[Rfam]
RNA sequence: ACGACAAACUCUGGAGAGUCUCAGUAAAUGAGCGCCGAAGGUGUAACACAGAAGGAGUACGGCUGGUGCCAAAAGAGCAGAAAGCCGGAAGAGCUUCUGUCUAUCUCUCAGGCAAAAGGACAGGGCUGGAAAU
Numbered sequence: 001a002c003g004a005c006a007a008a009c010u011c012u013g014g015a016g017a018g019u020c021u022c023a024g025u026a027a028a029u030g031a032g033c034g035c036c037g038a039a040g041g042u043g044u045a046a047c048a049c050a051g052a053a054g055g056a057g058u059a060c061g062g063c064u065g066g067u068g069c070c071a072a073a074a075g076a077g078c079a080g081a082a083a084g085c086c087g088g089a090a091g092a093g094c095u096u097c098u099g100u101c102u103a104u105c106u107c108u109c110a111g112g113c114a115a116a117a118g119g120a121c122a123g124g125g126c127u128g129g130a131a132a133u
Stems, first nucleotide, its partner, number of pairs: 007127001009125005020032004034113003037109002041107001043105001

A member of the RNA family "Glycine riboswitch aptamer" from Lachnoclostridium sp. An131, 133 nucleotides long.
Pairs were carried over by alignment from the consensus structure.
A search with the family's covariance model found it, with a score of 54 bits.